The family of this 47-nucleotide RNA sequence from Rhodnius prolixus is "Histone 3' UTR stem-loop".
The family's RNA type in Rfam is cis-regulatory element.
[Rfam]
RNA sequence: UUAACGGCCCUUUUCAGGGCCACCAAAUUUAGAUCACUUAUUUACGU
Numbered sequence: 001u002u003a004a005c006g007g008c009c010c011u012u013u014u015c016a017g018g019g020c021c022a023c024c025a026a027a028u029u030u031a032g033a034u035c036a037c038u039u040a041u042u043u044a045c046g047u
Stems, first nucleotide, its partner, number of pairs: 006021006